This 329-nucleotide RNA sequence from Allobrachymonas denitrificans belongs to the Rfam family "Bacterial RNase P class A". From the family's description: Ribonuclease P (RNase P) is a ubiquitous endoribonuclease, found in archaea, bacteria and eukarya as well as chloroplasts and mitochondria. Its best characterised activity is the generation of mature 5'-ends of tRNAs by cleaving the 5'-leader elements of precursor-tRNAs. Cellular RNase Ps are ribonucleoproteins. The match comes from Rfam's covariance-model search (211 bits).
RNA sequence: GAAGCCUGCCAGACCGCCGCUGGUGCAAUCGUGGAAACACGGCACUGGAGGAACGUCCGGACUGCACAGGACAGCGCAGGAGGUAAUACCUCUCCACCGUGAGGUGAGGAUCAGAGCAACAGAGACGAGUUUGGGCAGCUAUGCUGCCCAAGGUGAAACGGGCAAUCUCUGCGCGCAGCAAUACCAAGUAGGCCAGCGUUGAUGUGGUUCCGCAGAGCUGGCGGGUAGGUAGCACCGAGCCGGGUGGGCGACCCCCGGCCCAGAUGAAUGGCGGUCACGCAGCGGGCAACCGCUGUGCACAGAAUCCGGCUUAUCGGCAGACUUCACAU
Numbered sequence: 001g002a003a004g005c006c007u008g009c010c011a012g013a014c015c016g017c018c019g020c021u022g023g024u025g026c027a028a029u030c031g032u033g034g035a036a037a038c039a040c041g042g043c044a045c046u047g048g049a050g051g052a053a054c055g056u057c058c059g060g061a062c063u064g065c066a067c068a069g070g071a072c073a074g075c076g077c078a079g080g081a082g083g084u085a086a087u088a089c090c091u092c093u094c095c096a097c098c099g100u101g102a103g104g105u106g107a108g109g110a111u112c113a114g115a116g117c118a119a120c121a122g123a124g125a126c127g128a129g130u131u132u133g134g135g136c137a138g139c140u141a142u143g144c145u146g147c148c149c150a151a152g153g154u155g156a157a158a159c160g161g162g163c164a165a166u167c168u169c170u171g172c173g174c175g176c177a178g179c180a181a182u183a184c185c186a187a188g189u190a191g192g193c194c195a196g197c198g199u200u201g202a203u204g205u206g207g208u209u210c211c212g213c214a215g216a217g218c219u220g221g222c223g224g225g226u227a228g229g230u231a232g233c234a235c236c237g238a239g240c241c242g243g244g245u246g247g248g249c250g251a252c253c254c255c256c257g258g259c260c261c262a263g264a265u266g267a268a269u270g271g272c273g274g275u276c277a278c279g280c281a282g283c284g285g286g287c288a289a290c291c292g293c294u295g296u297g298c299a300c301a302g303a304a305u306c307c308g309g310c311u312u313a314u315c316g317g318c319a320g321a322c323u324u325c326a327c328a329u
Stems, first nucleotide, its partner, number of pairs: 001325004006320005011314001012276007020048007053312001055310001057309005062178004069209002074174005079093005094108001095106004109169002114167002116163002131152002133149007182231004192222006203214004239259006246253002